[Rfam]
RNA sequence: UCCCCAUUUUAAGUCAAGGACCUAUUCUUUUUCCUCGCGAAAUAUUCUCCAUGAACUGGUUCUGUUACAAACUGGGAAGAUUGAGACCGACUCGCUUUCCCAACGCCGUCUUGGCUGCGGGUGGAUGGCUUCCGUUUUGGUGGCCGUCGCUAGAGUUCAGAGUGAUCUGUUUGAGUUGAGGGCCGACUCCGCCUCGCGGGUUCUUGUGGCGGUCCUCUUAGUAACGCUUCACACAUGC
Numbered sequence: 001u002c003c004c005c006a007u008u009u010u011a012a013g014u015c016a017a018g019g020a021c022c023u024a025u026u027c028u029u030u031u032u033c034c035u036c037g038c039g040a041a042a043u044a045u046u047c048u049c050c051a052u053g054a055a056c057u058g059g060u061u062c063u064g065u066u067a068c069a070a071a072c073u074g075g076g077a078a079g080a081u082u083g084a085g086a087c088c089g090a091c092u093c094g095c096u097u098u099c100c101c102a103a104c105g106c107c108g109u110c111u112u113g114g115c116u117g118c119g120g121g122u123g124g125a126u127g128g129c130u131u132c133c134g135u136u137u138u139g140g141u142g143g144c145c146g147u148c149g150c151u152a153g154a155g156u157u158c159a160g161a162g163u164g165a166u167c168u169g170u171u172u173g174a175g176u177u178g179a180g181g182g183c184c185g186a187c188u189c190c191g192c193c194u195c196g197c198g199g200g201u202u203c204u205u206g207u208g209g210c211g212g213u214c215c216u217c218u219u220a221g222u223a224a225c226g227c228u229u230c231a232c233a234c235a236u237g238c
Stems, first nucleotide, its partner, number of pairs: 003076004017063006025055003029041003033037001087160001089158001091155003099121003105115003124148007132140003162232004168226003178217004182210004188200005
A member of the RNA family "Small nucleolar RNA snR191" from Ascochyta rabiei, 238 nucleotides long. For this family Rfam cites "A snoRNA that guides the two most conserved pseudouridine modifications within rRNA confers a growth advantage in yeast" (Badis et al., RNA, 2003). Its Rfam clan is "SNORA74 clan". A search with the family's covariance model found it, with a score of 62 bits.